[Rfam]
RNA sequence: UGACGGGGGCCCGCACAAGCAGUGGAGCAUGUGGUUUAAUUCGACGAUACGCGAAGAACCUUACCAGGGUUUGACAUCUGUAGAAUUCUCUAGAAACAGAGAAGUGCCCGCAAGGGAGCUACAAGACAGGUGGUGCAUGGCUGUCGGCAGCUCGUGUCGUGAGAUGUUGGGUUAAGUCCCGCAACGAGCGCAACCCCCAUUCUGUGUUGCCAGCACGUAAUGGUGGGAACUUACGGAAGACUGCCUGUGGUAAGCAGGAGGAAGGUGGGGACGACGUCAAGUCAUCAUGCCCCUUACACCCUGGGCCACACACAUGCUACAAUGGGUAGUACAAAGGGUUGCCAAGCCGCGAGGUGGAGCUAAUCUCAAAAAACUAUCCUCAGUUCGGAUUGCAGUCUGAAACUCGACUGCAUGAAGUUGGAAUUGCUAGUAAACGCAAAUCAGCUACGUUGCGUUGAAUACGUUCCCGGGCCUUGUACACACCGCCCGUCACACCAUGAGAGUCGGAAACACCCGAAGCCAAUGUGCUAACCCUCGGGAGGCAGUUGUCUAAGGUGGAGCUGGCGAUUGGGGUGAAGUCGUAACAAGG
Number, nucleotide and partner (000 for none) at each position: 001u480002g479003a477004c476005g475006g000007g474008g473009g472010c471011c470012c469013g468014c000015a464016c463017a000018a000019g427020c426021a425022g424023u423024g320025g000026a318027g317028c316029a315030u314031g313032u312033g311034g309035u308036u000037u000038a000039a000040u055041u054042c053043g052044a000045c000046g000047a000048u000049a000050c000051g000052c043053g042054a041055a040056g000057a000058a000059c000060c000061u000062u000063a000064c304065c303066a302067g301068g300069g299070u298071u000072u000073g000074a000075c000076a000077u126078c125079u123080g122081u121082a120083g119084a000085a000086u103087u102088c101089u100090c099091u098092a000093g000094a000095a000096a000097c000098a091099g090100a089101g088102a087103a086104g000105u118106g000107c116108c115109c000110g000111c000112a000113a000114g000115g108116g107117a000118g105119c083120u082121a081122c080123a079124a000125g078126a077127c000128a000129g293130g292131u000132g291133g290134u289135g288136c000137a000138u287139g286140g282141c281142u280143g278144u000145c276146g275147g000148c000149a000150g189151c188152u187153c186154g185155u184156g165157u164158c163159g000160u000161g000162a000163g158164a157165u156166g000167u000168u181169g180170g179171g178172u000173u000174a000175a000176g000177u000178c171179c170180c169181g168182c000183a000184a155185c154186g153187a152188g151189c150190g000191c000192a000193a000194c000195c270196c269197c268198c267199a000200u238201u237202c236203u235204g234205u233206g232207u000208u000209g000210c227211c226212a000213g000214c225215a224216c223217g000218u000219a000220a000221u000222g000223g216224u215225g214226g211227g210228a000229a000230c000231u000232u206233a205234c204235g203236g202237a201238a200239g000240a000241c261242u260243g000244c258245c257246u256247g255248u254249g000250g000251u000252a000253a000254g248255c247256a246257g245258g244259a000260g242261g241262a000263a000264g000265g000266u000267g198268g197269g196270g195271a000272c000273g000274a000275c146276g145277u000278c143279a000280a142281g141282u140283c000284a000285u000286c139287a138288u135289g134290c133291c132292c130293c129294u000295u000296a000297c000298a070299c069300c068301c067302u066303g065304g064305g000306c000307c000308a035309c034310a000311c033312a032313c031314a030315u029316g028317c027318u026319a000320c024321a000322a000323u000324g379325g378326g377327u376328a375329g374330u373331a000332c000333a000334a000335a000336g367337g366338g365339u000340u000341g360342c359343c000344a000345a000346g355347c354348c353349g000350c000351g000352a000353g348354g347355u346356g000357g000358a000359g342360c341361u000362a000363a000364u000365c338366u337367c336368a000369a000370a000371a000372a000373a330374c329375u328376a327377u326378c325379c324380u000381c000382a000383g000384u000385u000386c417387g000388g000389a000390u000391u412392g411393c410394a409395g408396u407397c406398u000399g000400a000401a000402a000403c000404u000405c000406g397407a396408c395409u394410g393411c392412a391413u000414g000415a000416a000417g386418u000419u000420g000421g000422a000423a023424u022425u021426g020427c019428u000429a000430g000431u000432a000433a456434a455435c454436g453437c452438a451439a450440a000441u000442c000443a000444g000445c000446u000447a000448c000449g000450u439451u438452g437453c436454g435455u434456u433457g000458a000459a000460u000461a000462c000463g016464u015465u000466c000467c000468c013469g012470g011471g010472c009473c008474u007475u005476g004477u003478a000479c002480a001481c000482a000483c588484c000485g585486c000487c000488c581489g580490u000491c000492a000493c575494a574495c573496c572497a000498u570499g569500a568501g000502a000503g565504u564505c563506g562507g561508a000509a000510a000511c557512a556513c555514c554515c000516g000517a000518a000519g550520c000521c548522a547523a546524u545525g000526u544527g543528c542529u541530a000531a000532c539533c538534c000535u000536c000537g000538g533539g532540a000541g529542g528543c527544a526545g524546u523547u522548g521549u000550c519551u000552a000553a000554g514555g513556u512557g511558g000559a000560g000561c507562u506563g505564g504565c503566g000567a000568u500569u499570g498571g000572g496573g495574u494575g493576a000577a000578g000579u000580c489581g488582u000583a000584a000585c485586a000587a000588g483589g000
Bacterial small subunit ribosomal RNA: a 589-nucleotide part of an RNA from Candidatus Marinamargulisbacteria bacterium SCGC AG-410-N11. The source organism's lineage runs through Bacteria, Bacillati, Candidatus Margulisiibacteriota and Candidatus Marinamargulisbacteria. Pairs were carried over by alignment from the consensus structure, which is taken from published work. Clan: SSU clan. Its family is annotated with structural constituent of ribosome and ribosome in the Gene Ontology.